[Rfam]
RNA sequence: UUGAUCGAUGAUGACCACUGGUGGCGUAUGAGUCAUGUACGAUGAAAAUCCAGGAAGUUUUAUCUGAUCAGA
Numbered sequence: 001u002u003g004a005u006c007g008a009u010g011a012u013g014a015c016c017a018c019u020g021g022u023g024g025c026g027u028a029u030g031a032g033u034c035a036u037g038u039a040c041g042a043u044g045a046a047a048a049u050c051c052a053g054g055a056a057g058u059u060u061u062a063u064c065u066g067a068u069c070a071g072a
Stems, first nucleotide, its partner, number of pairs: 002070005

Shown here is a 72-nucleotide RNA from Ursus americanus, a member of the family "Small nucleolar RNA SNORD113/SNORD114 family".
It scores 54 bits against the family's covariance model.
It is annotated as a C/D-box small nucleolar RNA.
Lineage of the source: Eukaryota > Eumetazoa > Deuterostomia > Tetrapoda > Ursus.
About the family: The imprinted human domain at 14q32 contains two clusters of tandemly repeated small nucleolar RNAs named 14q(I) and 14q(II) snoRNAs. These two clusters are named SNORD113 and SNORD114 respectively in the HGNC approved gene symbol nomenclature.
The family's consensus secondary structure is taken from published work.